RNA sequence: GGUGCCACGCAAGUGGGCCGAGGUUCGACUCCGGUGGCGUCAGCGUUUCGGUGCCGCAGCAAUUUGAGG
Numbered sequence: 001g002g003u004g005c006c007a008c009g010c011a012a013g014u015g016g017g018c019c020g021a022g023g024u025u026c027g028a029c030u031c032c033g034g035u036g037g038c039g040u041c042a043g044c045g046u047u048u049c050g051g052u053g054c055c056g057c058a059g060c061a062a063u064u065u066g067a068g069g
Base pairs, nucleotide, nucleotide: 003039004038005037006036007035008034043057044056045055047053
The family of this 69-nucleotide sequence from Rhodococcus erythropolis is "hya RNA". It is annotated as a cis-regulatory element.